[Rfam]
RNA sequence: ACUGGAAGCUGCUGGGACCAAUUGGGACCAAUCAUGGGCAAAAUAAAUAUUUUUUUGUCCACUGUUGCAGUCUUCCUAGAGCAAAGUGGAGGUCUCUGUCUGCUUUAGGACAGCCAACUAAAUCAGAUCGUUCCCCUCCUUACACA
Number, nucleotide and partner (000 for none) at each position: 001a000002c000003u000004g076005g075006a074007a000008g071009c070010u069011g068012c067013u000014g000015g000016g000017a000018c000019c000020a000021a000022u000023u000024g000025g000026g000027a000028c000029c000030a000031a000032u000033c000034a000035u061036g060037g059038g058039c057040a000041a000042a000043a053044u000045a000046a000047a000048u000049a000050u000051u000052u000053u043054u000055u000056u000057g039058u038059c037060c036061a035062c000063u000064g000065u000066u000067g012068c011069a010070g009071u008072c000073u000074u006075c005076c004077u000078a000079g000080a000081g000082c000083a000084a000085a000086g000087u000088g139089g138090a137091g136092g135093u000094c000095u000096c130097u000098g128099u127100c126101u000102g124103c000104u122105u121106u120107a119108g118109g000110a000111c000112a000113g000114c000115c000116a000117a000118c108119u107120a106121a105122a104123u000124c102125a000126g100127a099128u098129c000130g096131u000132u000133c000134c000135c092136c091137u090138c089139c088140u000141u000142a000143c000144a000145c000146a000